A member of the RNA family "Alphaproteobacterial sRNA ar7" from Pseudaminobacter salicylatoxidans, 144 nucleotides long. The literature on the family includes a 2012 paper in RNA Biol by del Val et al., "A survey of sRNA families in alpha-proteobacteria". NCBI's taxonomy places the organism under Bacteria, Pseudomonadati, Pseudomonadota, Alphaproteobacteria, Pseudaminobacter. It is annotated as a small RNA.
Nucleotides: 144
Base pairs, nucleotide, nucleotide: 022055023054024053025052026051032046033045034044059094060093061092062091063090064089065088066087067086068085111138112137113136114135115134116133117132118131119130120129
Number, partner (000 for none) and nucleotide at each position: 001000c002000a003000u004000c005000g006000g007000c008000a009000a010000u011000c012000a013000u014000u015000a016000g017000c018000c019000g020000a021000g022055u023054c024053c025052g026051g027000a028000a029000u030000a031000a032046g033045g034044c035000c036000c037000g038000u039000c040000c041000c042000c043000c044034g045033c046032c047000u048000g049000g050000a051026c052025c053024g054023g055022a056000c057000g058000u059094u060093g061092c062091g063090g064089c065088a066087g067086c068085c069000u070000a071000a072000u073000c074000c075000c076000c077000c078000c079000u080000c081000u082000c083000c084000g085068g086067g087066c088065u089064g090063c091062c092061g093060c094059a095000c096000c097000c098000c099000u100000u101000u102000u103000u104000a105000g106000u107000a108000c109000c110000g111138c112137c113136g114135c115134c116133g117132u118131g119130g120129u121000u122000u123000c124000c125000c126000u127000c128000c129120a130119c131118c132117a133116c134115g135114g136113c137112g138111g139000c140000a141000u142000u143000u144000u